This 221-nucleotide part of an RNA from Thermothelomyces thermophilus belongs to the Rfam family "Ascomycota telomerase RNA". Rfam classes the family as a non-coding RNA gene. A reference for the family is Qi et al. (2013), "The common ancestral core of vertebrate and fungal telomerase RNAs", Nucleic Acids Res. Pairs were carried over by alignment from the consensus structure. The organism belongs to Thermothelomyces thermophilus, within Eukaryota. The sequence is in the family's curated seed alignment.
RNA sequence: UCCCCCACAGUUCUCCGAUUCCGGUUUUCCGCAAGGAAUGUCGCCCCGACCGCUCCCCGGGACUGGAAACCCCGCAGUACGUCGCAGCUUCGAUCCCGUAUCGGGUGCCUCUCAAGCUUGCCGCGUUCGGAUCUACUGUGGCCGAUUCCUUGCCCUUUUCACCUCGGCAAGCCAGUCCCGCGGGAGCGAAUCGGUCUCGGAACUUAACCCUAAGCAGAUCU
Numbered sequence: 001u002c003c004c005c006c007a008c009a010g011u012u013c014u015c016c017g018a019u020u021c022c023g024g025u026u027u028u029c030c031g032c033a034a035g036g037a038a039u040g041u042c043g044c045c046c047c048g049a050c051c052g053c054u055c056c057c058c059g060g061g062a063c064u065g066g067a068a069a070c071c072c073c074g075c076a077g078u079a080c081g082u083c084g085c086a087g088c089u090u091c092g093a094u095c096c097c098g099u100a101u102c103g104g105g106u107g108c109c110u111c112u113c114a115a116g117c118u119u120g121c122c123g124c125g126u127u128c129g130g131a132u133c134u135a136c137u138g139u140g141g142c143c144g145a146u147u148c149c150u151u152g153c154c155c156u157u158u159u160c161a162c163c164u165c166g167g168c169a170a171g172c173c174a175g176u177c178c179c180g181c182g183g184g185a186g187c188g189a190a191u192c193g194g195u196c197u198c199g200g201a202a203c204u205u206a207a208c209c210c211u212a213a214g215c216a217g218a219u220c221u
Base pairs, nucleotide, nucleotide: 009204010203011202015200016199017198018197